[Rfam]
RNA: Glycine riboswitch aptamer
RNA sequence: GCCACUCUGGAAAGCGGAGCGGAGGCUCCCGCCGACGGUGAAAGUCGGAUCCGCAGCGAUACGGAUCCGCCGAAGCUCUCAGGUCCAUGACAGAGGGGGAGUU
Numbered sequence: 001g002c003c004a005c006u007c008u009g010g011a012a013a014g015c016g017g018a019g020c021g022g023a024g025g026c027u028c029c030c031g032c033c034g035a036c037g038g039u040g041a042a043a044g045u046c047g048g049a050u051c052c053g054c055a056g057c058g059a060u061a062c063g064g065a066u067c068c069g070c071c072g073a074a075g076c077u078c079u080c081a082g083g084u085c086c087a088u089g090a091c092a093g094a095g096g097g098g099g100a101g102u103u
Base pairs, nucleotide, nucleotide: 002098003097005095006094007093008092009091016029017028018027019026031084032083033082034080035079038078040076044071